[Rfam]
RNA sequence: GGUUUGUCUGAAGGUACUGAUUCAUCUCAACUGAUUCAUAGUCAGUUGACGAUCAAAGUCCUUGUUCUACUCUUUCUCAGUACUGCACUUGACUAGUGUAAA
Numbered sequence: 001g002g003u004u005u006g007u008c009u010g011a012a013g014g015u016a017c018u019g020a021u022u023c024a025u026c027u028c029a030a031c032u033g034a035u036u037c038a039u040a041g042u043c044a045g046u047u048g049a050c051g052a053u054c055a056a057a058g059u060c061c062u063u064g065u066u067c068u069a070c071u072c073u074u075u076c077u078c079a080g081u082a083c084u085g086c087a088c089u090u091g092a093c094u095a096g097u098g099u100a101a102a
Stems, first nucleotide, its partner, number of pairs: 002097003006093003010090002014086002016081005030063001033060004
The record is a 102-nucleotide sequence from Gorilla gorilla, which matches "Y RNA" in Rfam. The match comes from Rfam's covariance-model search (38 bits). The source organism's lineage runs through Eukaryota, Opisthokonta, Boreoeutheria, Hominidae and Gorilla gorilla. The literature on the family includes a 2000 paper in Nucleic Acids Res by Teunissen et al., "Conserved features of Y RNAs: a comparison of experimentally derived secondary structures". It is annotated as a non-coding RNA gene. Y RNAs are components of the Ro ribonucleoprotein particle (Ro RNP), in association with Ro60 and La proteins.